[Rfam]
RNA sequence: CUCCGACGUAGAGGAGCGAUAUUGAAUAGUAUCCAGUAUUGGGGUGAUGCCAAUGAAUACUGGAGAAAGGCCAUAUCGCCGAAGUUAGUGAGUCCAUCAAGCUGCUAGCUGGGGUUGUCAUCGAAUAGGGGCAACACUGCCAUAGUCUAUAUUGUUGUUAAACUAUGGAGCGCUACUGUAGGG
Numbered sequence: 001c002u003c004c005g006a007c008g009u010a011g012a013g014g015a016g017c018g019a020u021a022u023u024g025a026a027u028a029g030u031a032u033c034c035a036g037u038a039u040u041g042g043g044g045u046g047a048u049g050c051c052a053a054u055g056a057a058u059a060c061u062g063g064a065g066a067a068a069g070g071c072c073a074u075a076u077c078g079c080c081g082a083a084g085u086u087a088g089u090g091a092g093u094c095c096a097u098c099a100a101g102c103u104g105c106u107a108g109c110u111g112g113g114g115u116u117g118u119c120a121u122c123g124a125a126u127a128g129g130g131g132c133a134a135c136a137c138u139g140c141c142a143u144a145g146u147c148u149a150u151a152u153u154g155u156u157g158u159u160a161a162a163c164u165a166u167g168g169a170g171c172g173c174u175a176c177u178g179u180a181g182g183g
Stems, first nucleotide, its partner, number of pairs: 008176004016079007024071001032064008083110008094101001111138002114135006121128001140168007
RNA: Lysine riboswitch aptamer